[Rfam]
RNA sequence: GUCUUCUGCAUUUACAGAAGUCUGCUAUAAUUGUAUGAUUCAGAUUUUCUGUUUUGUGCAAUAAUGCUAGCAGAGUAUGGCGCAGAAGGAGAUUAAUGAGCGCUGCACUGAACAUGAGAUGUGGCUGAACCUCUUUCUUAAUGUUCAUUAGCCAUACUCUCAAGGUGAAGCGCUUACAAC
Numbered sequence: 001g002u003c004u005u006c007u008g009c010a011u012u013u014a015c016a017g018a019a020g021u022c023u024g025c026u027a028u029a030a031u032u033g034u035a036u037g038a039u040u041c042a043g044a045u046u047u048u049c050u051g052u053u054u055u056g057u058g059c060a061a062u063a064a065u066g067c068u069a070g071c072a073g074a075g076u077a078u079g080g081c082g083c084a085g086a087a088g089g090a091g092a093u094u095a096a097u098g099a100g101c102g103c104u105g106c107a108c109u110g111a112a113c114a115u116g117a118g119a120u121g122u123g124g125c126u127g128a129a130c131c132u133c134u135u136u137c138u139u140a141a142u143g144u145u146c147a148u149u150a151g152c153c154a155u156a157c158u159c160u161c162a163a164g165g166u167g168a169a170g171c172g173c174u175u176a177c178a179a180c
Stems, first nucleotide, its partner, number of pairs: 021074001023072005030065004036056002041051004099174006106167002122151001124149001126147004
RNA: Small nucleolar RNA SNORA81
Organism: Austrofundulus limnaeus